[Rfam]
RNA sequence: CCACACUUGUGAACGUGUCUUUUUCCGCUUUGCUGCCGCUGUUCUGUCGUCGCCAGCAGAGAGGAUGAGGCUAGUGCACGAGUUGACC
Number, nucleotide and partner (000 for none) at each position: 001c000002c000003a000004c000005a000006c000007u000008u080009g079010u078011g000012a000013a075014c000015g000016u000017g071018u000019c069020u068021u067022u000023u065024u064025c063026c000027g000028c061029u060030u059031u000032g000033c056034u055035g054036c000037c052038g000039c049040u000041g000042u000043u000044c000045u000046g000047u000048c000049g039050u000051c000052g037053c000054c035055a034056g033057c000058a000059g030060a029061g028062a000063g025064g024065a023066u000067g021068a020069g019070g000071c017072u000073a000074g000075u013076g000077c000078a010079c009080g008081a000082g000083u000084u000085g000086a000087c000088c000
RNA: mir-316 microRNA precursor family